[Rfam]
RNA sequence: GAGUCCGACGAGCCUAAUCCGCGCAGCACUGCGUGGAGCCGGGGACCCACCCCUUUUCCCCCCGGGGCGAAUCGGCCUCGCUUCCCCUUCGAAGCACAGCCGUAGGGCUACUUCCAGGCCCGAGCCCGUCAGCUAACCCGGCCGGCCUCGUGGAAGGACAGU
Numbered sequence: 001g002a003g004u005c006c007g008a009c010g011a012g013c014c015u016a017a018u019c020c021g022c023g024c025a026g027c028a029c030u031g032c033g034u035g036g037a038g039c040c041g042g043g044g045a046c047c048c049a050c051c052c053c054u055u056u057u058c059c060c061c062c063c064g065g066g067g068c069g070a071a072u073c074g075g076c077c078u079c080g081c082u083u084c085c086c087c088u089u090c091g092a093a094g095c096a097c098a099g100c101c102g103u104a105g106g107g108c109u110a111c112u113u114c115c116a117g118g119c120c121c122g123a124g125c126c127c128g129u130c131a132g133c134u135a136a137c138c139c140g141g142c143c144g145g146c147c148u149c150g151u152g153g154a155a156g157g158a159c160a161g162u
Base pairs, nucleotide, nucleotide: 012146013145014144018037019036020035021034022033023032024031025030038142039141040140041139042138043137048064065127066126067125073102074101075100076099105121106120107119108118
c-di-AMP riboswitch aptamer (ydaO/yuaA leader): a 162-nucleotide RNA sequence from Nonomuraea sp. WAC 01424. The match comes from Rfam's covariance-model search (73 bits).